[Rfam]
RNA sequence: ACCAAGCCUAGGAUAGCUCCCGAAAAGCCGAAACCCUAUCGGCCUGGCUUGGUAAUUAUCAAAGGG
Numbered sequence: 001a002c003c004a005a006g007c008c009u010a011g012g013a014u015a016g017c018u019c020c021c022g023a024a025a026a027g028c029c030g031a032a033a034c035c036c037u038a039u040c041g042g043c044c045u046g047g048c049u050u051g052g053u054a055a056u057u058a059u060c061a062a063a064g065g066g
Stems, first nucleotide, its partner, number of pairs: 001053008011021002027043004034066004
A member of the RNA family "int-alpA RNA" from an Alteromonadaceae bacterium, 66 nucleotides long. Rfam's curators write: Acidobacteria (1 example), Planctomycetes (1 example), Proteobacteria. Rfam 15.1 lists 577 matches to the family in 491 species.